[Rfam]
RNA sequence: GGCAGAGGGAGGUCGGUUUCCGUGUCCCAGACCGUGAGUAAGGGACAUGAGGAAAGUCCCCCCACCGUCAGGGCAGGUGACCGGGUGCAAGCCCGGGGUGGGAGACCGCCGGCUCUGGAACAGAAACGAGACCCCUCGCCCCGACCCAUGAGGUGUGCGAACCCCGCGCGAGAACGGCCACAGUGCCGGGAAGCAACGGGGAGUUAACCCACCGAGGGCGCGUGUCGACGCGUUCGCGCACGCGGCAGCAGCCGCGGGCAAACGGGCGAGAACGGAUGGAACGGCGAACCCUCACCGGUGCAAGUCCGAACCACAAGGUAGCCCUGACAGCGGUUCGGACGCUGAGCUGAAUGUCGACCGAACAGAAGGGGGCUUACUCCCCUCAGCC
Numbered sequence: 001g002g003c004a005g006a007g008g009g010a011g012g013u014c015g016g017u018u019u020c021c022g023u024g025u026c027c028c029a030g031a032c033c034g035u036g037a038g039u040a041a042g043g044g045a046c047a048u049g050a051g052g053a054a055a056g057u058c059c060c061c062c063c064a065c066c067g068u069c070a071g072g073g074c075a076g077g078u079g080a081c082c083g084g085g086u087g088c089a090a091g092c093c094c095g096g097g098g099u100g101g102g103a104g105a106c107c108g109c110c111g112g113c114u115c116u117g118g119a120a121c122a123g124a125a126a127c128g129a130g131a132c133c134c135c136u137c138g139c140c141c142c143g144a145c146c147c148a149u150g151a152g153g154u155g156u157g158c159g160a161a162c163c164c165c166g167c168g169c170g171a172g173a174a175c176g177g178c179c180a181c182a183g184u185g186c187c188g189g190g191a192a193g194c195a196a197c198g199g200g201g202a203g204u205u206a207a208c209c210c211a212c213c214g215a216g217g218g219c220g221c222g223u224g225u226c227g228a229c230g231c232g233u234u235c236g237c238g239c240a241c242g243c244g245g246c247a248g249c250a251g252c253c254g255c256g257g258g259c260a261a262a263c264g265g266g267c268g269a270g271a272a273c274g275g276a277u278g279g280a281a282c283g284g285c286g287a288a289c290c291c292u293c294a295c296c297g298g299u300g301c302a303a304g305u306c307c308g309a310a311c312c313a314c315a316a317g318g319u320a321g322c323c324c325u326g327a328c329a330g331c332g333g334u335u336c337g338g339a340c341g342c343u344g345a346g347c348u349g350a351a352u353g354u355c356g357a358c359c360g361a362a363c364a365g366a367a368g369g370g371g372g373c374u375u376a377c378u379c380c381c382c383u384c385a386g387c388c
Stems, first nucleotide, its partner, number of pairs: 001388003005384005010378002012358006021049008054375003058372005063300004071325003076296005081096005097110005111291002116287001118285001132275002135270007153255002304340009
RNA: Archaeal RNase P